[Rfam]
RNA sequence: AGGCCGAGGCUGGCGGCCACGGGCCCGAGAGGGCCUGAGGAAACACCGCCCUCCCAGCGGCAGCCGGACCCCGCAAGGGGCCAGGGCAGGCCCCUGGGCAACGGCACAGAGACGACACGGCCCCCACGGCAUGGCGAUGACUCCGCGAGGCGGGCCUGGCGACAGGCCCGCAGUAACCGGUCGAGGACCGCGGGGGAUGCGGUGAAACGGCCGUCCCCGGCGGAGCAAGGCCAGGGCCUGUGAGGGGCCGCGGGAGGCCCUGGAGACCGCUGAGUCAAAUGCCGCCGAAGUACAGAAGGCGGGUUAUAGCCUCGGCCU
Numbered sequence: 001a002g003g004c005c006g007a008g009g010c011u012g013g014c015g016g017c018c019a020c021g022g023g024c025c026c027g028a029g030a031g032g033g034c035c036u037g038a039g040g041a042a043a044c045a046c047c048g049c050c051c052u053c054c055c056a057g058c059g060g061c062a063g064c065c066g067g068a069c070c071c072c073g074c075a076a077g078g079g080g081c082c083a084g085g086g087c088a089g090g091c092c093c094c095u096g097g098g099c100a101a102c103g104g105c106a107c108a109g110a111g112a113c114g115a116c117a118c119g120g121c122c123c124c125c126a127c128g129g130c131a132u133g134g135c136g137a138u139g140a141c142u143c144c145g146c147g148a149g150g151c152g153g154g155c156c157u158g159g160c161g162a163c164a165g166g167c168c169c170g171c172a173g174u175a176a177c178c179g180g181u182c183g184a185g186g187a188c189c190g191c192g193g194g195g196g197a198u199g200c201g202g203u204g205a206a207a208c209g210g211c212c213g214u215c216c217c218c219g220g221c222g223g224a225g226c227a228a229g230g231c232c233a234g235g236g237c238c239u240g241u242g243a244g245g246g247g248c249c250g251c252g253g254g255a256g257g258c259c260c261u262g263g264a265g266a267c268c269g270c271u272g273a274g275u276c277a278a279a280u281g282c283c284g285c286c287g288a289a290g291u292a293c294a295g296a297a298g299g300c301g302g303g304u305u306a307u308a309g310c311c312u313c314g315g316c317c318u
Stems, first nucleotide, its partner, number of pairs: 001318003005314007012286006020037007042305003046302005051225004057251005063221005069080004082096005097216002102213004118201002121196005127190002140181002229268002232265001234260005
Dot-bracket structure: (((.(((((((((((((..(((((((....)))))))....[[[.[[[[[((((..[[[[[.(((((.((((....)))).(((((.....)))))((...((((............((.(((((.((...........((......................................)).......)).)))))...))........)))).)))))))))))...((.(.(((((........]]]]]....)))))....).))............))))))...........]]]]]]]]..))))))).)))
RNA: Archaeal RNase P